Shown here is a 109-nucleotide RNA from Mycolicibacterium neoaurum, a member of the family "TPP riboswitch aptamer (THI element)". Gene Ontology term of the family: thiamine pyrophosphate binding. The family's consensus secondary structure is taken from published work. Rfam's curators write: Vitamin B(1) in its active form thiamin pyrophosphate (TPP) is an essential coenzyme that is synthesised by coupling of pyrimidine and thiazole moieties in bacteria. The organism belongs to Mycolicibacterium neoaurum, within Bacteria.
[Rfam]
RNA sequence: ACGGGUCCACACGGGAGCACGCACCAGCGCGCUGAGAGGACGGCUAGGGCCGUCGACCGUACGAACCUGACCGGAUAAUGCCGGCGUAGGGAGAUGUGUAAUGAGUGCC
Number, nucleotide and partner (000 for none) at each position: 001a000002c000003g000004g000005g000006u000007c096008c000009a000010c093011a060012c059013g058014g057015g000016a000017g032018c031019a000020c029021g028022c000023a000024c000025c000026a000027g000028c021029g020030c000031g018032c017033u000034g000035a000036g000037a000038g000039g054040a053041c052042g051043g050044c000045u000046a000047g000048g000049g000050c043051c042052g041053u040054c039055g000056a000057c014058c013059g012060u011061a000062c000063g000064a000065a000066c090067c089068u088069g087070a000071c084072c083073g082074g081075a000076u000077a000078a000079u000080g000081c074082c073083g072084g071085c000086g000087u069088a068089g067090g066091g000092a000093g010094a000095u000096g007097u000098g000099u000100a000101a000102u000103g000104a000105g000106u000107g000108c000109c000